[Rfam]
RNA: Molybdenum/Tungsten riboswitch aptamer (Moco RNA motif)
RNA sequence: UAAUUAAAUAAUCUCCGUGCAAAAAUAUCUAAGGGCUAAUUUAGUCUAGGAUAUUGCGCCAAAGCGAAAUAGGGAAUAGGAAUGAAAAUAUAGCUUUAAGCUUUUCGCUUUCUGGGUUACGUGGGAAACCAUUUAGCCUUCCGUAUUAGAGAAGGAGCAUUAUUUACAAGAAU
Dot-bracket structure: ...(.(......((((..((...((((((...((((.......))))..))))))..)).(((((((((.................................)))))))))..((((((.((((....)))).))))))((.......))...))))......).).......